Rfam assigns this 32-nucleotide RNA to the family "DUF805b RNA". Rfam classes the family as a cis-regulatory element.
RNA sequence: AAUGCGGAAGCCGAAAAGCAAAUGAGUAGGCA
Numbered sequence: 001a002a003u004g005c006g007g008a009a010g011c012c013g014a015a016a017a018g019c020a021a022a023u024g025a026g027u028a029g030g031c032a
Stems, first nucleotide, its partner, number of pairs: 003020003010031003